[Rfam]
RNA sequence: ACUCAACACUAAUUCUUUUAAAAAGGGUGAGUUAAAGUUGUAAAAGAAUGCCGCUAGAACCUUGGUUCUCGGGCGGACCCUUGAUCAGCUUGGGAGCCCUAAACUUUUUUAAAUGGAGUUU
Numbered sequence: 001a002c003u004c005a006a007c008a009c010u011a012a013u014u015c016u017u018u019u020a021a022a023a024a025g026g027g028u029g030a031g032u033u034a035a036a037g038u039u040g041u042a043a044a045a046g047a048a049u050g051c052c053g054c055u056a057g058a059a060c061c062u063u064g065g066u067u068c069u070c071g072g073g074c075g076g077a078c079c080c081u082u083g084a085u086c087a088g089c090u091u092g093g094g095a096g097c098c099c100u101a102a103a104c105u106u107u108u109u110u111a112a113a114u115g116g117a118g119u120u121u
Stems, first nucleotide, its partner, number of pairs: 024100005035091005044082003051076004